Shown here is a 262-nucleotide sequence from Origma solitaria, a member of the family "Small Cajal body specific RNA 6". Rfam 15.1 lists 1,309 matches to the family in 627 species. A reference for the family is Darzacq et al. (2002), "Cajal body-specific small nuclear RNAs: a novel class of 2'-O-methylation and pseudouridylation guide RNAs", EMBO J. Rfam links the family to the GO terms RNA processing and nucleolus. From the family's description: U88 is small Cajal body specific RNA (scaRNA). scaRNAs are a novel class of small nuclear RNAs which localise to the Cajal bodies. U88 is found associated with both fibrillarin and Gar1p and co-localises with coilin in Cajal bodies. The organism belongs to Origma, within Eukaryota.
[Rfam]
RNA sequence: GGUCUGUGAUGAGUAGUAAAAGGUCUGAUUAUCCCAAGGCUUGCAGUUCCAUACCCUUUUCUCCCAGCAGUUUCUCCCCAGCCACGGCACAGCAAUGGUGUGGCUGGCAGAGUGUUUGCUGACAGUGUGAGAUGUGCUCAGUCAUGUUCACCUGGAGCACUGGAGACAUGGCUGGGAUCAGCAUCCAACAGUCCUGCUUGAAGGAGCUUGGGGUCUUGGAUUGCUCUAACUGGACAUGUGAUCUGACUUUUCUGCUGAGACC
Numbered sequence: 001g002g003u004c005u006g007u008g009a010u011g012a013g014u015a016g017u018a019a020a021a022g023g024u025c026u027g028a029u030u031a032u033c034c035c036a037a038g039g040c041u042u043g044c045a046g047u048u049c050c051a052u053a054c055c056c057u058u059u060u061c062u063c064c065c066a067g068c069a070g071u072u073u074c075u076c077c078c079c080a081g082c083c084a085c086g087g088c089a090c091a092g093c094a095a096u097g098g099u100g101u102g103g104c105u106g107g108c109a110g111a112g113u114g115u116u117u118g119c120u121g122a123c124a125g126u127g128u129g130a131g132a133u134g135u136g137c138u139c140a141g142u143c144a145u146g147u148u149c150a151c152c153u154g155g156a157g158c159a160c161u162g163g164a165g166a167c168a169u170g171g172c173u174g175g176g177a178u179c180a181g182c183a184u185c186c187a188a189c190a191g192u193c194c195u196g197c198u199u200g201a202a203g204g205a206g207c208u209u210g211g212g213g214u215c216u217u218g219g220a221u222u223g224c225u226c227u228a229a230c231u232g233g234a235c236a237u238g239u240g241a242u243c244u245g246a247c248u249u250u251u252c253u254g255c256u257g258a259g260a261c262c
Base pairs, nucleotide, nucleotide: 001262002261003260004259037244038243039242041240046221047220048219049218061206062205063204064203065121066120067119068118069117070116078107079106080105081104082103083102084101085100086099129186131185132184133183134182135181148166149165151163152162154160